[Rfam]
RNA sequence: AAGAUAUUUAUUUUUAUUCAGUUGUAAGGUGAAGAAAGCUCUUUGCAAAUGUCCUAGAGAAACAUAGUAGCUUUCUUUCCACCCUUGGCAAGUAAAAAGGGUAGAGCGUCCCACUACUGACAUAU
Number, nucleotide and partner (000 for none) at each position: 001a000002a000003g053004a052005u051006a050007u049008u048009u047010a000011u045012u000013u000014u000015u000016a000017u000018u000019c000020a040021g039022u038023u037024g000025u000026a000027a000028g000029g000030u000031g000032a000033a000034g000035a000036a000037a023038g022039c021040u020041c000042u000043u000044u000045g011046c000047a009048a008049a007050u006051g005052u004053c003054c000055u000056a000057g000058a000059g000060a000061a000062a000063c000064a000065u119066a118067g117068u116069a115070g114071c000072u000073u000074u000075c000076u000077u000078u000079c000080c000081a000082c000083c000084c099085u098086u097087g000088g000089c000090a000091a000092g000093u000094a000095a000096a000097a086098a085099g084100g000101g000102u000103a000104g000105a000106g000107c000108g000109u000110c000111c000112c000113a000114c070115u069116a068117c067118u066119g065120a000121c000122a000123u000124a000125u000
This 125-nucleotide RNA sequence from Molossus molossus belongs to the Rfam family "Small Cajal body specific RNA 24". The literature on the family includes a 2002 paper in EMBO J by Darzacq et al., "Cajal body-specific small nuclear RNAs: a novel class of 2'-O-methylation and pseudouridylation guide RNAs". Rfam's curators write: scaRNAs are a specific class of small nuclear RNAs which localise to the Cajal bodies and guide the modification of RNA polymerase II transcribed spliceosomal RNAs U1, U2, U4, U5 and U12. Taxonomically the source falls in Molossus (Eukaryota, Deuterostomia, Amniota, Eutheria). Rfam classes the family as a small Cajal body RNA.